[Rfam]
RNA: mir-393 microRNA precursor family
Organism: Hevea brasiliensis
RNA sequence: GGUGGAAAAUUCCUAAGGGAUCGCAUGAUCCAAUGAAUAAAAAUGAUAAUUAACGGUCAUUUUAGGCGCAUCAGUAGACAUCAUCAGAUCAAUGCGAUCCCUUUGGAACUCUCCAC
Numbered sequence: 001g002g003u004g005g006a007a008a009a010u011u012c013c014u015a016a017g018g019g020a021u022c023g024c025a026u027g028a029u030c031c032a033a034u035g036a037a038u039a040a041a042a043a044u045g046a047u048a049a050u051u052a053a054c055g056g057u058c059a060u061u062u063u064a065g066g067c068g069c070a071u072c073a074g075u076a077g078a079c080a081u082c083a084u085c086a087g088a089u090c091a092a093u094g095c096g097a098u099c100c101c102u103u104u105g106g107a108a109c110u111c112u113c114c115a116c
Stems, first nucleotide, its partner, number of pairs: 002116005008110001010108004015103007023095003026091005035082001